[Rfam]
RNA sequence: UUGAAGUUCCAUCUCUUAAUGGAUAAGGCUUUUCUGCUAACAUAUAGUAAUUUUUGAAGGAAGGAAAGCUAGAAAUACCCAAUACCUUGCUGAAACAAGAUGUAGGGCAUGUUUGGUUC
Numbered sequence: 001u002u003g004a005a006g007u008u009c010c011a012u013c014u015c016u017u018a019a020u021g022g023a024u025a026a027g028g029c030u031u032u033u034c035u036g037c038u039a040a041c042a043u044a045u046a047g048u049a050a051u052u053u054u055u056g057a058a059g060g061a062a063g064g065a066a067a068g069c070u071a072g073a074a075a076u077a078c079c080c081a082a083u084a085c086c087u088u089g090c091u092g093a094a095a096c097a098a099g100a101u102g103u104a105g106g107g108c109a110u111g112u113u114u115g116g117u118u119c
Base pairs, nucleotide, nucleotide: 008023009022010021011020012019067118068117069116070115071114072113073112075110076109078107080105082103084101086099087098088097
RNA: Plastid-psbA-1 3UTR RNA